[Rfam]
RNA sequence: ACAUUACAUUGGCUGAAUCCCGUUUUUUUCGGGUACGGAGGAACCAACUUAGGGGUUAAUCCAUGUAUUUUAUGGUAGGGAACCUUCUUUCCCGAACCCGCCAGCUAACUUCGGAAGCAAAUUACGGAAGGAGUG
Numbered sequence: 001a002c003a004u005u006a007c008a009u010u011g012g013c014u015g016a017a018u019c020c021c022g023u024u025u026u027u028u029u030c031g032g033g034u035a036c037g038g039a040g041g042a043a044c045c046a047a048c049u050u051a052g053g054g055g056u057u058a059a060u061c062c063a064u065g066u067a068u069u070u071u072a073u074g075g076u077a078g079g080g081a082a083c084c085u086u087c088u089u090u091c092c093c094g095a096a097c098c099c100g101c102c103a104g105c106u107a108a109c110u111u112c113g114g115a116a117g118c119a120a121a122u123u124a125c126g127g128a129a130g131g132a133g134u135g
Stems, first nucleotide, its partner, number of pairs: 012118003019033004036113005045052001053099003061075004078093004
The record is a 135-nucleotide RNA sequence from Marinisporobacter balticus, which matches "c-di-AMP riboswitch aptamer (ydaO/yuaA leader)" in Rfam. Lineage of the source: Bacteria > Clostridia > Peptostreptococcales > Thermotaleaceae > Marinisporobacter.